[Rfam]
RNA sequence: GAGAUCAUUUUGGGGUGCGUUAUGCUGAGAGAGACCCAUUGAACCUGUCAAGUUAGUGCUUGCGAAGGGAAAGUGAUUGCAUCAAGA
Number, nucleotide and partner (000 for none) at each position: 001g000002a000003g000004a000005u000006c075007a074008u073009u072010u071011u038012g037013g036014g035015g000016u032017g025018c024019g023020u000021u000022a000023u019024g018025c017026u000027g000028a000029g000030a000031g000032a016033g000034a000035c014036c013037c012038a011039u000040u000041g000042a000043a000044c068045c067046u066047g000048u000049c062050a061051a060052g059053u000054u000055a000056g000057u000058g000059c052060u051061u050062g049063c000064g000065a000066a046067g045068g044069g000070a000071a010072a009073g008074u007075g006076a000077u000078u000079g000080c000081a000082u000083c000084a000085a000086g000087a000

Record summary:
This 87-nucleotide sequence from Dolosigranulum pigrum belongs to the Rfam family "TPP riboswitch aptamer (THI element)". Lineage of the source: Bacteria > Bacillati > Bacillota > Carnobacteriaceae > Dolosigranulum pigrum. The base pairs follow the family's consensus structure, which is taken from published work.